[Rfam]
The record is an 85-nucleotide RNA from Pseudomonas putida, which matches "Group II catalytic intron D1-D4-1" in Rfam. Taxonomically the source falls in Pseudomonas putida (Bacteria, Pseudomonadota, Pseudomonadales, Pseudomonadaceae). Rfam's curators put it in the seed alignment.
RNA sequence: UACCGCGCGUCGAAAGGCGACGGGAUGAGCGUGCAGAAGUCAGCCGAAGCCGUAGUAAGUGGCGGUUAACCGCGCCACCAAGGGC
Dot-bracket structure: ((.(...((((....))))...)..))............((....)).(((.......((((((........))))))....)))
Numbered sequence: 001u002a003c004c005g006c007g008c009g010u011c012g013a014a015a016g017g018c019g020a021c022g023g024g025a026u027g028a029g030c031g032u033g034c035a036g037a038a039g040u041c042a043g044c045c046g047a048a049g050c051c052g053u054a055g056u057a058a059g060u061g062g063c064g065g066u067u068a069a070c071c072g073c074g075c076c077a078c079c080a081a082g083g084g085c
Stems, first nucleotide, its partner, number of pairs: 001027002004023001008019004040047002049085003059078006